[Rfam]
RNA sequence: GGCGUCGCGAGGCGUCGUGGGGAGGAAACCCAAUCCAAAGAUACGGGACGACGAACAGGAAUCGGAUACAAGGUGUGACGUAGUCGGGACCAGCGAGCACGUGAUCGCCAAGUCCUCCAUCUGCAAUCGGGCUGCGUUUUAUAAAUCCGGCGUUCACGUAUCGAAAGCAUCAUGACU
Numbered sequence: 001g002g003c004g005u006c007g008c009g010a011g012g013c014g015u016c017g018u019g020g021g022g023a024g025g026a027a028a029c030c031c032a033a034u035c036c037a038a039a040g041a042u043a044c045g046g047g048a049c050g051a052c053g054a055a056c057a058g059g060a061a062u063c064g065g066a067u068a069c070a071a072g073g074u075g076u077g078a079c080g081u082a083g084u085c086g087g088g089a090c091c092a093g094c095g096a097g098c099a100c101g102u103g104a105u106c107g108c109c110a111a112g113u114c115c116u117c118c119a120u121c122u123g124c125a126a127u128c129g130g131g132c133u134g135c136g137u138u139u140u141a142u143a144a145a146u147c148c149g150g151c152g153u154u155c156a157c158g159u160a161u162c163g164a165a166a167g168c169a170u171c172a173u174g175a176c177u
Stems, first nucleotide, its partner, number of pairs: 001016006028177001031174002036167001040162006046155005062150006073142003077138007087115004093108004